[Rfam]
RNA sequence: GGGUGUCCGUCCGCACUGGCGCGGGCGGGCAGGUUUUCGUGCCGGUCGGGCCGCCGCA
Dot-bracket structure: ....((((((((((......)))))))))).........(((.(((......))))))
Numbered sequence: 001g002g003g004u005g006u007c008c009g010u011c012c013g014c015a016c017u018g019g020c021g022c023g024g025g026c027g028g029g030c031a032g033g034u035u036u037u038c039g040u041g042c043c044g045g046u047c048g049g050g051c052c053g054c055c056g057c058a
Stems, first nucleotide, its partner, number of pairs: 005030010040058003044055003
nhaA-I RNA: a 58-nucleotide RNA sequence from Pseudothauera rhizosphaerae. The match comes from Rfam's covariance-model search (52 bits). About the family: Acidobacteria, Alphaproteobacteria, Betaproteobacteria and Gammaproteobacteria, Verrucomicrobia, cand. division NC10.